[Rfam]
RNA sequence: UUCUUAUCAAGAGAAGUGGAGGGACUGGCCCGACGAAGCUUCAGCAACAGGUUCAAUUGAACACUGUGCUAAUUCCAGUAGCUUGAAAGCUAGAAGAUAAGAA
Numbered sequence: 001u002u003c004u005u006a007u008c009a010a011g012a013g014a015a016g017u018g019g020a021g022g023g024a025c026u027g028g029c030c031c032g033a034c035g036a037a038g039c040u041u042c043a044g045c046a047a048c049a050g051g052u053u054c055a056a057u058u059g060a061a062c063a064c065u066g067u068g069c070u071a072a073u074u075c076c077a078g079u080a081g082c083u084u085g086a087a088a089g090c091u092a093g094a095a096g097a098u099a100a101g102a103a
Stems, first nucleotide, its partner, number of pairs: 001103008013042005021031003025078004043070004048066002051062004074095001079092005
SAM riboswitch aptamer (S box leader): a 103-nucleotide RNA from Piscibacillus halophilus. The family has 457 seed sequences and 9,625 matches in Rfam 15.1. The base pairs follow the family's consensus structure, which is taken from published work.